[Rfam]
RNA sequence: CUAUAACACGAACCGUGUGGGUGAGUAACCUGCGUUCAGGUUCGAGCCGAGCGAAGCGAGACAGCAACGCACAGCGUUGACCCGAAGGGCGAGUCCACAGGACGAGUCAUCCCGCACGACCCACCA
Dot-bracket structure: ..............((((((((..........((.((...((((...((.......))......((((((...))))))...)))).)))).................).))))))).........
Numbered sequence: 001c002u003a004u005a006a007c008a009c010g011a012a013c014c015g016u017g018u019g020g021g022u023g024a025g026u027a028a029c030c031u032g033c034g035u036u037c038a039g040g041u042u043c044g045a046g047c048c049g050a051g052c053g054a055a056g057c058g059a060g061a062c063a064g065c066a067a068c069g070c071a072c073a074g075c076g077u078u079g080a081c082c083c084g085a086a087g088g089g090c091g092a093g094u095c096c097a098c099a100g101g102a103c104g105a106g107u108c109a110u111c112c113c114g115c116a117c118g119a120c121c122c123a124c125c126a
Stems, first nucleotide, its partner, number of pairs: 015117007022109001033091002036089002041086004048058002065079006